RNA: SAM riboswitch aptamer (S box leader)
Organism: Tenacibaculum soleae
RNA sequence: AUGUUAUCAAGAAAGGUGGAGGGAUUAGACCCUGUGAAACCUUAGCAACCCUAUGUGUAAACAAAGAAGGUGCUAAAUUCUACUUAAAAAUUGUAGUAAAUUUAAUUUUUAAGAGAGAUAACGG
Number, nucleotide and partner (000 for none) at each position: 001a000002u123003g122004u121005u120006a119007u118008c117009a000010a000011g000012a000013a043014a042015g041016g040017u039018g000019g000020a000021g032022g031023g030024a000025u000026u082027a081028g080029a079030c023031c022032c021033u000034g000035u000036g000037a000038a000039a017040c016041c015042u014043u013044a074045g073046c072047a071048a000049c070050c069051c066052u065053a000054u063055g000056u000057g000058u000059a000060a000061a000062c000063a054064a000065a052066g051067a000068a000069g050070g049071u047072g046073c045074u044075a000076a000077a000078u116079u029080c028081u027082a026083c113084u112085u111086a110087a109088a108089a107090a106091u105092u104093g103094u000095a000096g000097u000098a000099a000100a000101u000102u000103u093104a092105a091106u090107u089108u088109u087110u086111a085112a084113g083114a000115g000116a078117g008118a007119u006120a005121a004122c003123g002124g000